About this RNA
Rfam assigns this 96-nucleotide sequence from Salicibibacter halophilus to the family "Glycine riboswitch aptamer".
RNA sequence: AUGAUAACAGAGGGAGAGACCGUUGUUCAUCAAAACGGCGCCGAAGGAGCAAACCGGAACGGUGAAUCUCUCAGGCACAUGUACUUCUGUUUGACG
Numbered sequence: 001a002u003g004a005u006a007a008c009a010g011a012g013g014g015a016g017a018g019a020c021c022g023u024u025g026u027u028c029a030u031c032a033a034a035a036c037g038g039c040g041c042c043g044a045a046g047g048a049g050c051a052a053a054c055c056g057g058a059a060c061g062g063u064g065a066a067u068c069u070c071u072c073a074g075g076c077a078c079a080u081g082u083a084c085u086u087c088u089g090u091u092u093g094a095c096g
Stems, first nucleotide, its partner, number of pairs: 006091008020038004040076003043072002047070003053063002
Taxonomically the source falls in Salicibibacter (Bacteria, Bacillati, Bacilli, Bacillaceae). Its family is annotated with glycine biosynthetic process in the Gene Ontology.